Rfam assigns this 491-nucleotide part of an RNA from Coccidioides immitis to the family "Eukaryotic large subunit ribosomal RNA". The sequence is in the family's curated seed alignment. NCBI's taxonomy places the organism under Eukaryota, Opisthokonta, Pezizomycotina, Coccidioides, Coccidioides immitis.
[Rfam]
RNA sequence: UAGAACAAUGUAGAUAAGGGAAGUCGGCAAAAUAGAUCCGUAACUUCGGGAAAAGGAUUGGCUCUAAGGGUCGGGCGCGUUGGGCCUUGGGGGAAAGCCUCCGGAGCAGGAGGGCACUAGCCGGGCAACCGGCGGGCGCCUUCCAGCAUCGGGGUGCGGACGCCCUUGGCAGGCUUCGGCCGUCCGGCGCGCGAUUAACGACCAACUUAGAACUGGUACGGACAAGGGGAAUCUGACUGUCUAAUUAAAACAUAGCAUUGCGAUGGCCAGAAAGUGGUGUUGACGCAAUGUGAUUUCUGCCCAGUGCUCUGAAUGUCAAAGUGAAGAAAUUCAACCAAGCGCGGGUAAACGGCGGGAGUAACUAUGACUCUCUUAAGGUAGCCAAAUGCCUCGUCAUCUAAUUAGUGACGCGCAUGAAUGGAUUAACGAGAUUCCCACUGUCCCUAUCUACUAUCUAGCGAAACCACAGCCAAGGGAACGGGCUUGGCAAA
Number, nucleotide and partner (000 for none) at each position: 001u457002a456003g455004a454005a000006c000007a000008a000009u000010g451011u450012a449013g448014a447015u446016a445017a000018g443019g442020g441021a000022a000023g000024u000025c000026g000027g000028c000029a000030a000031a000032a000033u000034a000035g059036a058037u057038c056039c055040g000041u000042a000043a000044c049045u000046u000047c000048g000049g044050g000051a000052a000053a000054a000055g039056g038057a037058u036059u035060g214061g213062c000063u211064c210065u209066a208067a207068g206069g203070g202071u201072c200073g199074g000075g192076c191077g190078c189079g188080u187081u186082g185083g184084g170085c169086c168087u000088u000089g165090g164091g163092g000093g000094a000095a000096a000097g000098c000099c154100u153101c152102c151103g150104g149105a000106g147107c146108a000109g144110g143111a142112g141113g140114g139115c138116a000117c136118u135119a000120g133121c132122c131123g130124g129125g000126c000127a000128a000129c124130c123131g122132g121133c120134g000135g118136g117137c000138g115139c114140c113141u112142u111143c110144c109145a000146g107147c106148a000149u104150c103151g102152g101153g100154g099155u000156g000157c000158g000159g000160a000161c000162g000163c091164c090165c089166u000167u000168g086169g085170c084171a000172g000173g000174c000175u000176u000177c000178g000179g000180c000181c000182g000183u000184c083185c082186g081187g080188c079189g078190c077191g076192c075193g000194a000195u000196u000197a000198a000199c073200g072201a071202c070203c069204a000205a000206c068207u067208u066209a065210g064211a063212a000213c061214u060215g219216g000217u000218a000219c215220g000221g000222a000223c000224a000225a000226g000227g436228g435229g434230a433231a432232u431233c430234u428235g427236a000237c000238u252239g251240u250241c000242u000243a000244a000245u000246u000247a000248a000249a000250a240251c239252a238253u000254a000255g291256c290257a289258u288259u287260g286261c285262g284263a000264u000265g000266g278267c277268c276269a275270g000271a000272a000273a000274g000275u269276g268277g267278u266279g000280u000281u000282g000283a000284c262285g261286c260287a259288a258289u257290g256291u255292g000293a000294u000295u422296u421297c420298u000299g353300c352301c351302c000303a000304g350305u349306g346307c345308u344309c343310u000311g342312a000313a000314u341315g340316u339317c000318a000319a000320a000321g000322u333323g332324a331325a330326g000327a000328a000329a000330u325331u324332c323333a322334a000335c000336c000337a000338a000339g316340c315341g314342c311343g309344g308345g307346u306347a000348a000349a305350c304351g301352g300353c299354g372355g371356g370357a369358g368359u367360a000361a000362c000363u000364a000365u000366g000367a359368c358369u357370c356371u355372c354373u377374u000375a000376a000377g373378g000379u000380a000381g000382c000383c000384a000385a000386a000387u000388g000389c000390c000391u000392c000393g409394u408395c407396a406397u405398c000399u000400a000401a000402u000403u000404a000405g397406u396407g395408a394409c393410g000411c000412g000413c000414a000415u000416g000417a000418a000419u000420g297421g296422a295423u000424u000425a000426a000427c235428g234429a000430g233431a232432u231433u230434c229435c228436c227437a000438c000439u000440g000441u020442c019443c018444c000445u016446a015447u014448c013449u012450a011451c010452u000453a000454u004455c003456u002457a001458g000459c000460g000461a000462a000463a000464c000465c000466a000467c000468a000469g000470c487471c486472a485473a484474g483475g000476g000477a000478a000479c000480g000481g000482g000483c474484u473485u472486g471487g470488c000489a000490a000491a000